[Rfam]
RNA sequence: GUGCCCAGUGAUUAUAAAAAGACGCGUUAUUCUGAGGACCACAACCCGCCGCCAGUCUUUCCUUCUACCUUGUGUUCUUGUCUUUGAUCUCCAUCUGUCUCAUCUCCUCUUCUUCAAACUGGUAGCUGGUCCACUGACUGCGAUUAUGAGAUAUGAGGGCGU
Numbered sequence: 001g002u003g004c005c006c007a008g009u010g011a012u013u014a015u016a017a018a019a020a021g022a023c024g025c026g027u028u029a030u031u032c033u034g035a036g037g038a039c040c041a042c043a044a045c046c047c048g049c050c051g052c053c054a055g056u057c058u059u060u061c062c063u064u065c066u067a068c069c070u071u072g073u074g075u076u077c078u079u080g081u082c083u084u085u086g087a088u089c090u091c092c093a094u095c096u097g098u099c100u101c102a103u104c105u106c107c108u109c110u111u112c113u114u115c116a117a118a119c120u121g122g123u124a125g126c127u128g129g130u131c132c133a134c135u136g137a138c139u140g141c142g143a144u145u146a147u148g149a150g151a152u153a154u155g156a157g158g159g160c161g162u
Base pairs, nucleotide, nucleotide: 001162002161003160004159005158006157035078036077037076038075039074